RNA sequence: AUCGCUUCUCAGCCUUUGGCUAAGAUCAAGUGUAGUGUCUGUUCUUUUCAGCUUAAUAUCUGAUAAGUUCUUUAUUUAAGGACUGUAUAUUAAAUUGAUUUUUGAAACAAGGAGAUGGAAAAGGAGCUUGCUCUGACCACCCCAUGUAUUGACCUGGUAUUGCACUAUUUCCAGGACCAGUGCCUCUCCU
Numbered sequence: 001a002u003c004g005c006u007u008c009u010c011a012g013c014c015u016u017u018g019g020c021u022a023a024g025a026u027c028a029a030g031u032g033u034a035g036u037g038u039c040u041g042u043u044c045u046u047u048u049c050a051g052c053u054u055a056a057u058a059u060c061u062g063a064u065a066a067g068u069u070c071u072u073u074a075u076u077u078a079a080g081g082a083c084u085g086u087a088u089a090u091u092a093a094a095u096u097g098a099u100u101u102u103u104g105a106a107a108c109a110a111g112g113a114g115a116u117g118g119a120a121a122a123g124g125a126g127c128u129u130g131c132u133c134u135g136a137c138c139a140c141c142c143c144a145u146g147u148a149u150u151g152a153c154c155u156g157g158u159a160u161u162g163c164a165c166u167a168u169u170u171c172c173a174g175g176a177c178c179a180g181u182g183c184c185u186c187u188c189c190u
Stems, first nucleotide, its partner, number of pairs: 007025003011021004046065001048063004067083006111143002114140001117137001123134004146183006153175005